A member of the RNA family "U7 small nuclear RNA" from Coregonus sp. 'balchen', 53 nucleotides long.
RNA sequence: AAAUGUGCUCUUUUUGUAUUUGUCCAGUAGGUUUCCUCAAGGAGAAAGCUCCC
Dot-bracket structure: .............................(((((.(((...))).)))))...
Numbered sequence: 001a002a003a004u005g006u007g008c009u010c011u012u013u014u015u016g017u018a019u020u021u022g023u024c025c026a027g028u029a030g031g032u033u034u035c036c037u038c039a040a041g042g043a044g045a046a047a048g049c050u051c052c053c
Stems, first nucleotide, its partner, number of pairs: 030050005036044003

The organism belongs to Coregonus, within Eukaryota. Animal histone pre-mRNAs are spliced by a different mechanism than nuclear pre-mRNAs and self-splicing introns. The literature on the family includes a 1994 paper in Nucleic Acids Res by Spycher et al., "3' end processing of mouse histone pre-mRNA: evidence for additional base-pairing between U7 snRNA and pre-mRNA".